RNA: tRNA
RNA sequence: GGAAGGUUGGCCGAGUGGUUUAAGGCAGCAGUCUUGAAAACUGCCGAUCUGAAAGGAUCCGUGAGUUCGAAUCUCACACCUUCCG
Numbered sequence: 001g002g003a004a005g006g007u008u009g010g011c012c013g014a015g016u017g018g019u020u021u022a023a024g025g026c027a028g029c030a031g032u033c034u035u036g037a038a039a040a041c042u043g044c045c046g047a048u049c050u051g052a053a054a055g056g057a058u059c060c061g062u063g064a065g066u067u068c069g070a071a072u073c074u075c076a077c078a079c080c081u082u083c084c085g
Base pairs, nucleotide, nucleotide: 001084002083003082004081005080006079007078010026011025012024028044029043030042031041032040061077062076063075064074065073